[Rfam]
Nucleotides: 371
Base pairs, nucleotide, nucleotide: 018150019149020148021147022146023145024144025143026081027080028079030077031076035072036071037070038069039066040065041064042063043061044059045058046057047056048055090142092140093139094138100129101128103126167285173280174279175278176277188271189270190269191268193267194266195265196264197263290364291363292362293357294356295355296354297353306346307345308344309343310342315338322332323331324330325329
Number, partner (000 for none) and nucleotide at each position: 001000u002000u003000c004000u005000u006000u007000c008000c009000c010000u011000c012000a013000u014000c015000c016000a017000a018150a019149g020148u021147u022146c023145u024144g025143u026081g027080u028079c029000u030077c031076a032000a033000a034000c035072g036071c037070u038069c039066c040065c041064u042063u043061c044059c045058u046057a047056u048055c049000c050000a051000u052000c053000g054000c055048g056047g057046u058045a059044g060000u061043g062000u063042a064041a065040g066039g067000u068000c069038g070037a071036g072035c073000g074000u075000c076031u077030g078000u079028g080027g081026c082000g083000u084000u085000c086000u087000c088000g089000a090142c091000u092140a093139c094138u095000c096000u097000u098000g099000c100129g101128g102000a103126g104000c105000c106000a107000u108000u109000a110000a111000c112000a113000g114000c115000a116000c117000c118000c119000c120000c121000a122000u123000u124000a125000a126103u127000g128101u129100c130000u131000a132000u133000u134000u135000c136000c137000c138094a139093g140092u141000c142090g143025a144024c145023a146022g147021a148020a149019c150018u151000g152000a153000g154000a155000g156000c157000a158000a159000c160000c161000g162000c163000c164000g165000a166000a167285u168000c169000c170000u171000u172000u173280g174279c175278c176277u177000c178000a179000c180000g181000g182000c183000c184000g185000g186000u187000c188271c189270a190269c191268c192000u193267g194266a195265g196264c197263u198000c199000g200000g201000u202000u203000c204000u205000u206000g207000g208000g209000a210000c211000g212000a213000u214000g215000a216000c217000c218000c219000u220000u221000g222000a223000g224000a225000u226000c227000c228000u229000c230000g231000c232000g233000a234000u235000c236000u237000c238000g239000g240000g241000u242000u243000u244000u245000c246000c247000g248000a249000a250000c251000g252000g253000g254000g255000a256000c257000u258000u259000u260000g261000u262000c263197a264196g265195c266194u267193c268191g269190g270189u271188g272000g273000g274000c275000u276000g277176a278175g279174g280173u281000a282000g283000u284000a285167g286000g287000g288000g289000a290364g291363a292362c293357g294356u295355c296354u297353u298000a299000u300000u301000c302000c303000c304000a305000a306346g307345c308344u309343u310342g311000g312000u313000g314000u315338a316000u317000u318000u319000g320000a321000g322332c323331c324330u325329c326000g327000u328000c329325g330324a331323g332322g333000c334000a335000u336000g337000a338315u339000c340000a341000u342310u343309g344308g345307g346306c347000a348000a349000a350000a351000c352000c353297a354296a355295g356294a357293c358000u359000a360000u361000u362292g363291u364290c365000u366000a367000c368000a369000u370000u371000c